[Rfam]
RNA sequence: CGCAAGGGGUCAACGUGCGAACGCCCCGUCAGGCCCAGGCCCAAGUUUCGCAUUCUUUGCUGUACCAAAGCGGAAGGAUGCCGACAUG
Number, nucleotide and partner (000 for none) at each position: 001c000002g000003c000004a000005a000006g027007g026008g025009g024010u023011c000012a000013a000014c000015g000016u000017g000018c000019g000020a000021a000022c000023g010024c009025c008026c007027c006028g000029u000030c000031a000032g000033g000034c000035c000036c000037a000038g000039g000040c000041c000042c000043a000044a000045g000046u000047u000048u000049c000050g081051c080052a079053u078054u077055c076056u000057u000058u000059g000060c000061u000062g000063u000064a000065c000066c000067a000068a000069a000070g000071c000072g000073g000074a000075a000076g055077g054078a053079u052080g051081c050082c000083g000084a000085c000086a000087u000088g000